[Rfam]
RNA: Enterobacteria greA leader
RNA sequence: GUCAUACUACGGCGCAAUACGGUCUAAAGUAAACGAUGACCCCUAUGGAACUCUGAGUUAAAAUGCGUAUCAAAAUGCAAAACAAUACUGGCCUGGAAAUUUUGUUCCGGGACUGGUUUCUUU
Numbered sequence: 001g002u003c004a005u006a007c008u009a010c011g012g013c014g015c016a017a018u019a020c021g022g023u024c025u026a027a028a029g030u031a032a033a034c035g036a037u038g039a040c041c042c043c044u045a046u047g048g049a050a051c052u053c054u055g056a057g058u059u060a061a062a063a064u065g066c067g068u069a070u071c072a073a074a075a076u077g078c079a080a081a082a083c084a085a086u087a088c089u090g091g092c093c094u095g096g097a098a099a100u101u102u103u104g105u106u107c108c109g110g111g112a113c114u115g116g117u118u119u120c121u122u123u
Base pairs, nucleotide, nucleotide: 001040002039003038004037005036010035011034014030015029041048042047057071059069060068088115090113092111093110094109095108096107097106